[Rfam]
RNA: Fluoride riboswitch aptamer (crcB RNA motif)
RNA sequence: UUCGCGGCAGGAGAUGGCAUGCCUCCUCACUAACCGCCCUUGGGGCUGAUGAUGCCUACACGGAU
Numbered sequence: 001u002u003c004g005c006g007g008c009a010g011g012a013g014a015u016g017g018c019a020u021g022c023c024u025c026c027u028c029a030c031u032a033a034c035c036g037c038c039c040u041u042g043g044g045g046c047u048g049a050u051g052a053u054g055c056c057u058a059c060a061c062g063g064a065u
Stems, first nucleotide, its partner, number of pairs: 010026004016056005036046003